Source information: The family of this 77-nucleotide RNA from Nyssa sinensis is "Plastid-ycf2 5UTR RNA". On this family, see Richter et al., Plant Commun 2023: "Retrograde signaling in plants: A critical review focusing on the GUN pathway and beyond".
[Rfam]
RNA sequence: GUGCAUCCAGCAGGAAUCGAACCUACGAAUUUGCCCCUUGUAUAGGUUGGGCGCUUUAACCAUUCAGCCAUGGAUGC
Numbered sequence: 001g002u003g004c005a006u007c008c009a010g011c012a013g014g015a016a017u018c019g020a021a022c023c024u025a026c027g028a029a030u031u032u033g034c035c036c037c038u039u040g041u042a043u044a045g046g047u048u049g050g051g052c053g054c055u056u057u058a059a060c061c062a063u064u065c066a067g068c069c070a071u072g073g074a075u076g077c
Base pairs, nucleotide, nucleotide: 003077004076005075006074007073008072010026012024013023014022042071043070046068047067048066049065050064051063053061
Rfam 15.1 lists 3,521 matches to the family in 417 species. It scores 76 bits against the family's covariance model. The organism belongs to Nyssa, within Eukaryota. About the family: Plastid ycf2 is a non-coding RNA (ncRNA) recognised in plastids. It was found in the prime untranslated region (5UTR) of ycf2 genes, it presents a tRNA-like motif which suggests it can be involved in mRNA maturation, particularly involved in defining the precise 5' end of the transcript. It is annotated as a cis-regulatory element.